[Rfam]
RNA: Salmonella enterica sRNA STnc320
Organism: Salmonella enterica
RNA sequence: UUGACGCGUAUCACAACAAAAAAGGGCGCACUUUGGUGCGCCCUUUUCUCAACUU
Numbered sequence: 001u002u003g004a005c006g007c008g009u010a011u012c013a014c015a016a017c018a019a020a021a022a023a024g025g026g027c028g029c030a031c032u033u034u035g036g037u038g039c040g041c042c043c044u045u046u047u048c049u050c051a052a053c054u055u
Stems, first nucleotide, its partner, number of pairs: 020047012
Dot-bracket structure: ...................((((((((((((....))))))))))))........